Notes: The record is a 187-nucleotide RNA from Orrella marina, which matches "Group II catalytic intron D1-D4-3" in Rfam. It scores 90 bits against the family's covariance model. Lineage of the source: Bacteria > Pseudomonadota > Betaproteobacteria > Alcaligenaceae > Orrella. Rfam describes the family as follows. Group II introns are found in rRNA, tRNA and mRNA of organelles in fungi, plants and protists, and also in mRNA in bacteria.

RNA sequence: GAAAGGGUGACCGAUCGUGGGGAGAGCGAAGCGAGGGGCCAAGCGUGGAGCGUAAGUUGCGAGCCGACGAACAGAAAUCGCAUACAAGGCACUGCCGAGCAGAGCGAGCGGGCCAUAGACCGCAAAGCUCUUGUGUCCAAGGCGAGGUGGUGUAGAUGCGGCGGUUGUGCGACGAAGGUGUGCGUGA
Numbered sequence: 001g002a003a004a005g006g007g008u009g010a011c012c013g014a015u016c017g018u019g020g021g022g023a024g025a026g027c028g029a030a031g032c033g034a035g036g037g038g039c040c041a042a043g044c045g046u047g048g049a050g051c052g053u054a055a056g057u058u059g060c061g062a063g064c065c066g067a068c069g070a071a072c073a074g075a076a077a078u079c080g081c082a083u084a085c086a087a088g089g090c091a092c093u094g095c096c097g098a099g100c101a102g103a104g105c106g107a108g109c110g111g112g113c114c115a116u117a118g119a120c121c122g123c124a125a126a127g128c129u130c131u132u133g134u135g136u137c138c139a140a141g142g143c144g145a146g147g148u149g150g151u152g153u154a155g156a157u158g159c160g161g162c163g164g165u166u167g168u169g170c171g172a173c174g175a176a177g178g179u180g181u182g183c184g185u186g187a
Stems, first nucleotide, its partner, number of pairs: 001016002005012002044186004050179002056173006062166005078161006089153003093149001095147002099143002102130004108123004